A member of the RNA family "Nuclear RNase P" from Schistosoma bovis, 285 nucleotides long.

RNA sequence: GUCGCCUGGGGGUUAGCCACUGUGAGGUUAUGUAGAGGGUGCAUGGUCACCCGUGUUAGCCUUGCGGGAAGGUCUGAGACGUGCAGCAGCAAACUCUCGUGAUGAGAGGCCCCACUAACAGGGGUGCAGGCCAACAGACAAGGCUCUGACGGUCACACCACACACCCGGCGAUCGGGAGUCAUUCUCGUGAGGGGGAGGUGUGUCGUCGGAAUGAGAUGGUCUGUGCUGAGCGCGUAAAGCGAGAUUGGCUGUCAAAACUUAAUUCAGACUACUACCUAGGCGGC
Numbered sequence: 001g002u003c004g005c006c007u008g009g010g011g012g013u014u015a016g017c018c019a020c021u022g023u024g025a026g027g028u029u030a031u032g033u034a035g036a037g038g039g040u041g042c043a044u045g046g047u048c049a050c051c052c053g054u055g056u057u058a059g060c061c062u063u064g065c066g067g068g069a070a071g072g073u074c075u076g077a078g079a080c081g082u083g084c085a086g087c088a089g090c091a092a093a094c095u096c097u098c099g100u101g102a103u104g105a106g107a108g109g110c111c112c113c114a115c116u117a118a119c120a121g122g123g124g125u126g127c128a129g130g131c132c133a134a135c136a137g138a139c140a141a142g143g144c145u146c147u148g149a150c151g152g153u154c155a156c157a158c159c160a161c162a163c164a165c166c167c168g169g170c171g172a173u174c175g176g177g178a179g180u181c182a183u184u185c186u187c188g189u190g191a192g193g194g195g196g197a198g199g200u201g202u203g204u205c206g207u208c209g210g211a212a213u214g215a216g217a218u219g220g221u222c223u224g225u226g227c228u229g230a231g232c233g234c235g236u237a238a239a240g241c242g243a244g245a246u247u248g249g250c251u252g253u254c255a256a257a258a259c260u261u262a263a264u265u266c267a268g269a270c271u272a273c274u275a276c277c278u279a280g281g282c283g284g285c
Base pairs, nucleotide, nucleotide: 001285002284003283004282008278009277010276016250017249018248019247022065023064024063025062026061037052038051039050040049041048074268075267076266077265078264084229085228086227087226094108095107096106097105098104109125110124111123112122113121126225127224128223129222130221131220132219145211146210147209
Rfam classes the family as a ribozyme. Pairs were carried over by alignment from the consensus structure, which is taken from published work. Rfam links the family to the GO terms tRNA processing, ribonuclease P complex and ribonuclease P activity. The source organism's lineage runs through Eukaryota, Opisthokonta, Spiralia, Schistosomatoidea and Schistosoma.